This 116-nucleotide RNA from Flavonifractor sp. An135 belongs to the Rfam family "Glycine riboswitch aptamer".
RNA sequence: AUGAAAGCUGCGGGAGAGAUUCGGGCGUGAAAACGUGCCGGACACCGAAGGUAUAAAGGCUUCAUGAUUGCCGAGUGGAGCUGGAAUUUCUCAGGUAACCGUACCGUAGCCGGACA
Numbered sequence: 001a002u003g004a005a006a007g008c009u010g011c012g013g014g015a016g017a018g019a020u021u022c023g024g025g026c027g028u029g030a031a032a033a034c035g036u037g038c039c040g041g042a043c044a045c046c047g048a049a050g051g052u053a054u055a056a057a058g059g060c061u062u063c064a065u066g067a068u069u070g071c072c073g074a075g076u077g078g079a080g081c082u083g084g085a086a087u088u089u090c091u092c093a094g095g096u097a098a099c100c101g102u103a104c105c106g107u108a109g110c111c112g113g114a115c116a
Base pairs, nucleotide, nucleotide: 007110008109009108010107011106012105013104020042021041022040023039044096045095046094047092048091051090053088058082059081060080061079062078063077064076065075